mir-9/mir-79 microRNA precursor family: an 84-nucleotide RNA sequence from Trichobilharzia regenti. The source organism's lineage runs through Eukaryota, Metazoa, Protostomia, Trematoda and Trichobilharzia. Gene Ontology terms of the family: RISC complex and miRNA-mediated post-transcriptional gene silencing. A reference for the family is Lagos-Quintana et al. (2001), "Identification of novel genes coding for small expressed RNAs", Science. The family has 214 seed sequences and 5,647 matches in Rfam 15.1.

Nucleotides: 084
Stems, first nucleotide, its partner, number of pairs: 001084005007078016024061004029056008
Number, partner (000 for none) and nucleotide at each position: 001084u002083u003082u004081u005080g006000a007078u008077g009076u010075g011074g012073u013072u014071u015070g016069g017068u018067u019066c020065u021064c022063u023000g024061a025060g026059c027058u028000g029056g030055a031054u032053g033052g034051u035050u036049a037000g038000u039000u040000u041000g042000c043000g044000c045000a046000a047000a048000c049036u050035a051034a052033c053032c054031a055030u056029c057000c058027a059026g060025c061024u062000c063022a064021g065020a066019g067018a068017a069016c070015c071014a072013a073012a074011c075010c076009a077008c078007a079000u080005c081004a082003a083002a084001a